[Rfam]
RNA sequence: CACGUCUCGGGACGACGCUAAACUCGCCCUGGUCGGGAUGGGUUUAACGACCCCUCGGGUUUCCUAGUUCCUAAAACUAGGUGGUGGAGUCAUAU
Numbered sequence: 001c002a003c004g005u006c007u008c009g010g011g012a013c014g015a016c017g018c019u020a021a022a023c024u025c026g027c028c029c030u031g032g033u034c035g036g037g038a039u040g041g042g043u044u045u046a047a048c049g050a051c052c053c054c055u056c057g058g059g060u061u062u063c064c065u066a067g068u069u070c071c072u073a074a075a076a077c078u079a080g081g082u083g084g085u086g087g088a089g090u091c092a093u094a095u
Stems, first nucleotide, its partner, number of pairs: 009029003013026003040053002043050002057072003063081006
The record is a 95-nucleotide RNA, which matches "wcaG RNA" in Rfam.
The base pairs follow the family's consensus structure, which is taken from published work.
It is one of the family's seed sequences.